RNA: U2 spliceosomal RNA
Organism: Triticum turgidum
RNA sequence: AUACCUUUCUCGAUCUUUUGGCUAAGAUCAAGUGUAGUAUUUGUUCUUGUCGGUUUAAUAUCUGAUAUGUGAGCCAAAUGCCCACAACGAUAUUAAAUUUAUUUUUUACGGGGAAGGGUCCGCCACAAUAGUUUGCUAUUAGGGCCUUCAAGUGUCGUCCGGGCGUUGCACUGCAGCCCAGACCCGGCACACCCCAA
Numbered sequence: 001a002u003a004c005c006u007u008u009c010u011c012g013a014u015c016u017u018u019u020g021g022c023u024a025a026g027a028u029c030a031a032g033u034g035u036a037g038u039a040u041u042u043g044u045u046c047u048u049g050u051c052g053g054u055u056u057a058a059u060a061u062c063u064g065a066u067a068u069g070u071g072a073g074c075c076a077a078a079u080g081c082c083c084a085c086a087a088c089g090a091u092a093u094u095a096a097a098u099u100u101a102u103u104u105u106u107u108a109c110g111g112g113g114a115a116g117g118g119u120c121c122g123c124c125a126c127a128a129u130a131g132u133u134u135g136c137u138a139u140u141a142g143g144g145c146c147u148u149c150a151a152g153u154g155u156c157g158u159c160c161g162g163g164c165g166u167u168g169c170a171c172u173g174c175a176g177c178c179c180a181g182a183c184c185c186g187g188c189a190c191a192c193c194c195c196a197a
Stems, first nucleotide, its partner, number of pairs: 008027003012023001014021002048067006069085003073081002115148007128139004152190006159181001161179004